[Rfam]
RNA sequence: AAAAAGGGCUUUGAAUCAUGAACUUUGAUUCCACGAGGCUAUAAGCAUCGUGCAGCAUCGCCAUCAAGAGAUGCUGGAAGCGUAAUGUUUGGAUCAGGCAGAUGAGAUUCGCUUAAUUUCGUCGCCUCU
Numbered sequence: 001a002a003a004a005a006g007g008g009c010u011u012u013g014a015a016u017c018a019u020g021a022a023c024u025u026u027g028a029u030u031c032c033a034c035g036a037g038g039c040u041a042u043a044a045g046c047a048u049c050g051u052g053c054a055g056c057a058u059c060g061c062c063a064u065c066a067a068g069a070g071a072u073g074c075u076g077g078a079a080g081c082g083u084a085a086u087g088u089u090u091g092g093a094u095c096a097g098g099c100a101g102a103u104g105a106g107a108u109u110c111g112c113u114u115a116a117u118u119u120c121g122u123c124g125c126c127u128c129u
Base pairs, nucleotide, nucleotide: 008081009080010079011078012077013031014030015029016028017027032052033051034050035049036048038046039045053076054075055074056073057072058071059070096127097126098125099124101123102122103121104120105119107117108116109115
Shown here is a 129-nucleotide RNA sequence from Rozella allomycis, a member of the family "U11 spliceosomal RNA".
The family's consensus secondary structure is taken from published work.
It scores 78 bits against the family's covariance model.